[Rfam]
RNA sequence: GCGGGUGCAGGCGAUGAGGCUCGCCGUCAACCGCCCUCGCGCUGAUGGCCUCUACCACGGU
Numbered sequence: 001g002c003g004g005g006u007g008c009a010g011g012c013g014a015u016g017a018g019g020c021u022c023g024c025c026g027u028c029a030a031c032c033g034c035c036c037u038c039g040c041g042c043u044g045a046u047g048g049c050c051u052c053u054a055c056c057a058c059g060g061u
Stems, first nucleotide, its partner, number of pairs: 010025004016052006033042002
RNA: Fluoride riboswitch aptamer (crcB RNA motif)
Organism: Mangrovihabitans endophyticus